[Rfam]
RNA sequence: UCGUCAAGGCUAACGGAAGAAGAGAGAGAGUACAGCUUUGGGUUCUUAAUAAAGGUCACAUACAGUAGUACUUGUUGAUGACUGACUAUAUAUAAGAUCUUUUCCGACCAAGGCUGUACCCUCUCUCUUCGUCUCUUAGCAUCUUGAUGA
Numbered sequence: 001u002c003g004u005c006a007a008g009g010c011u012a013a014c015g016g017a018a019g020a021a022g023a024g025a026g027a028g029a030g031u032a033c034a035g036c037u038u039u040g041g042g043u044u045c046u047u048a049a050u051a052a053a054g055g056u057c058a059c060a061u062a063c064a065g066u067a068g069u070a071c072u073u074g075u076u077g078a079u080g081a082c083u084g085a086c087u088a089u090a091u092a093u094a095a096g097a098u099c100u101u102u103u104c105c106g107a108c109c110a111a112g113g114c115u116g117u118a119c120c121c122u123c124u125c126u127c128u129u130c131g132u133c134u135c136u137u138a139g140c141a142u143c144u145u146g147a148u149g150a
Stems, first nucleotide, its partner, number of pairs: 005146002009140001012137002015134003019130010030119012
Rfam assigns this 150-nucleotide RNA from Panicum hallii to the family "MIR529 microRNA precursor family". Gene Ontology terms of the family: miRNA-mediated post-transcriptional gene silencing and RISC complex. The match comes from Rfam's covariance-model search (84 bits).